[Rfam]
RNA sequence: AUACUCGAGUAAUCGCUGCAAUAAUUUAUUAUUGUUGAGGAAAGUCCAUGCUCGCACAGACUGCGAUGUUUGUAGUGUUCGUGUAUUGCGAAAAAAUAAGCGAUAGACGGCUUCCCAGAGCCGUACGGCUGCAUGAUUUAUCUAAGUUGCUUGCAAUAUGAUAGGUCAUCUUUAAAAGUGCCACAGAGACGAAUCUGCAUUGGAAACUUUGCUGGUGAAACGUUGGUAAACCCCGCGAGCGAGAAACCCAAAUUUGGUAGGGGAGCCUGAACGAUGGAAAUGAACAAAGUUCGGGGUGCUUCGUGCACAGAUAAAUGAUUACUGUUUUGUACAAGGCCUUAGGGCUGUUUGCGUACAAAAACACAGAACAUGGCUUACAGAG
Numbered sequence: 001a002u003a004c005u006c007g008a009g010u011a012a013u014c015g016c017u018g019c020a021a022u023a024a025u026u027u028a029u030u031a032u033u034g035u036u037g038a039g040g041a042a043a044g045u046c047c048a049u050g051c052u053c054g055c056a057c058a059g060a061c062u063g064c065g066a067u068g069u070u071u072g073u074a075g076u077g078u079u080c081g082u083g084u085a086u087u088g089c090g091a092a093a094a095a096a097u098a099a100g101c102g103a104u105a106g107a108c109g110g111c112u113u114c115c116c117a118g119a120g121c122c123g124u125a126c127g128g129c130u131g132c133a134u135g136a137u138u139u140a141u142c143u144a145a146g147u148u149g150c151u152u153g154c155a156a157u158a159u160g161a162u163a164g165g166u167c168a169u170c171u172u173u174a175a176a177a178g179u180g181c182c183a184c185a186g187a188g189a190c191g192a193a194u195c196u197g198c199a200u201u202g203g204a205a206a207c208u209u210u211g212c213u214g215g216u217g218a219a220a221c222g223u224u225g226g227u228a229a230a231c232c233c234c235g236c237g238a239g240c241g242a243g244a245a246a247c248c249c250a251a252a253u254u255u256g257g258u259a260g261g262g263g264a265g266c267c268u269g270a271a272c273g274a275u276g277g278a279a280a281u282g283a284a285c286a287a288a289g290u291u292c293g294g295g296g297u298g299c300u301u302c303g304u305g306c307a308c309a310g311a312u313a314a315a316u317g318a319u320u321a322c323u324g325u326u327u328u329g330u331a332c333a334a335g336g337c338c339u340u341a342g343g344g345c346u347g348u349u350u351g352c353g354u355a356c357a358a359a360a361a362c363a364c365a366g367a368a369c370a371u372g373g374c375u376u377a378c379a380g381a382g
Stems, first nucleotide, its partner, number of pairs: 004382003007378001008323007016037001018035004042376003046373005051243005056073006079238005084105006106126001107124006127233002131171001133169001139163004146157003178231002180227003195214001197212003202207001247262003266295007296308004325360008
The family of this 382-nucleotide sequence from Culicoidibacter larvae is "Bacterial RNase P class B". Rfam links the family to the GO terms dimeric ribonuclease P complex, tRNA processing and ribonuclease P activity. Rfam's curators write: Ribonuclease P (RNase P) is a ubiquitous endoribonuclease, found in archaea, bacteria and eukarya as well as chloroplasts and mitochondria. Its best characterised activity is the generation of mature 5'-ends of tRNAs by cleaving the 5'-leader elements of precursor-tRNAs. Cellular RNase Ps are ribonucleoproteins. RNA from bacterial RNase Ps retains its catalytic activity in the absence of the protein subunit, i.e. it is a ribozyme. The organism belongs to Culicoidibacter, within Bacteria. The family's RNA type in Rfam is ribozyme. The match comes from Rfam's covariance-model search (281 bits).